A member of the RNA family "Bacterial RNase P class A" from Hallella bergensis, 376 nucleotides long. NCBI's taxonomy places the organism under Bacteria, Pseudomonadati, Bacteroidia, Bacteroidales, Hallella bergensis.

RNA sequence: ACAGUGCCCCGGCACCAUCGCUGGCAUCCAAGGAGAUGCGAGAGGAAAGUCCGGGCAGCACAGGGUGCCCCACUUCUGAAAGUAGAAGCUAUUGGUGACAGUAGGUGAAGGUAGAAGAAAAUAACCGCCACUCCUUGUGGGUGGUAAGGGUGAGAAGGUGGUGUAAGAGACUACCGGGUGACGGGUGACCGCCAUGCCGUGCCGUCUGGGGGCUGCAAGUUCAUGUAUACCGUCGUAAUAAGGGUUGCCCGCCCGAUGCUCGCGCAACGACGGAGGGUAGAACGCUUGAGUUGCAGGGUGACUUGCAAAUUAGAUAAAUGAUGGGCUCCUUUCUUCGGGGAGGAUACAGAACCCGGCUUAUAGGGACACUGUCUUG
Numbered sequence: 001a002c003a004g005u006g007c008c009c010c011g012g013c014a015c016c017a018u019c020g021c022u023g024g025c026a027u028c029c030a031a032g033g034a035g036a037u038g039c040g041a042g043a044g045g046a047a048a049g050u051c052c053g054g055g056c057a058g059c060a061c062a063g064g065g066u067g068c069c070c071c072a073c074u075u076c077u078g079a080a081a082g083u084a085g086a087a088g089c090u091a092u093u094g095g096u097g098a099c100a101g102u103a104g105g106u107g108a109a110g111g112u113a114g115a116a117g118a119a120a121a122u123a124a125c126c127g128c129c130a131c132u133c134c135u136u137g138u139g140g141g142u143g144g145u146a147a148g149g150g151u152g153a154g155a156a157g158g159u160g161g162u163g164u165a166a167g168a169g170a171c172u173a174c175c176g177g178g179u180g181a182c183g184g185g186u187g188a189c190c191g192c193c194a195u196g197c198c199g200u201g202c203c204g205u206c207u208g209g210g211g212g213c214u215g216c217a218a219g220u221u222c223a224u225g226u227a228u229a230c231c232g233u234c235g236u237a238a239u240a241a242g243g244g245u246u247g248c249c250c251g252c253c254c255g256a257u258g259c260u261c262g263c264g265c266a267a268c269g270a271c272g273g274a275g276g277g278u279a280g281a282a283c284g285c286u287u288g289a290g291u292u293g294c295a296g297g298g299u300g301a302c303u304u305g306c307a308a309a310u311u312a313g314a315u316a317a318a319u320g321a322u323g324g325g326c327u328c329c330u331u332u333c334u335u336c337g338g339g340g341a342g343g344a345u346a347c348a349g350a351a352c353c354c355g356g357c358u359u360a361u362a363g364g365g366a367c368a369c370u371g372u373c374u375u376g
Base pairs, nucleotide, nucleotide: 001372002371003370004369005368006367008365009364010363011361012326013325015324016323017322018321019320021042022041024039025038026037027036028035047359048358049357051356052355053354054353055352056215057214058213059212063261064260065259066258068211069210070209071208072207073088074087075086076085077084089104091102092101093100094099105206110203111202112201113200125149126148127145128144129143130142131141132140133139157175158174159173160172161171162170176197178195179194180193182191183190184189219283220282221281222280230273231272232271233270234269255263291308292307293306294305295304296303297302
Dot-bracket structure: ((((((.((((((.(((((.((.(((((......))))).))....[[[.[[[[[((((...[[[[.((((((((((......)))))(.((((....)))).)(....((((...........(((((((((.....)))))))..)).......((((((.......))))))(.(((.(((....))).))).)..))))..))))))))))...((((.......(((((....................(..]]]].).....)))))......)))).......(((((((....)))))))...........))))))).........................]]]]]]]].).))).))))))....